[Rfam]
RNA sequence: CAUAUUUUAUAGGGGUGCUUAUCUAUGAGCUGAGAUCAUACCCUUAGAACCUGAUCCGGAUAAUACCGGCGUAGAGAAUAAAAAAAUGGAAAAA
Numbered sequence: 001c002a003u004a005u006u007u008u009a010u011a012g013g014g015g016u017g018c019u020u021a022u023c024u025a026u027g028a029g030c031u032g033a034g035a036u037c038a039u040a041c042c043c044u045u046a047g048a049a050c051c052u053g054a055u056c057c058g059g060a061u062a063a064u065a066c067c068g069g070c071g072u073a074g075a076g077a078a079u080a081a082a083a084a085a086a087u088g089g090a091a092a093a094a
Base pairs, nucleotide, nucleotide: 006082007081008080009079010078011044012043013042014041016038017030018029019028020027021026051074052073053072056069057068058067059066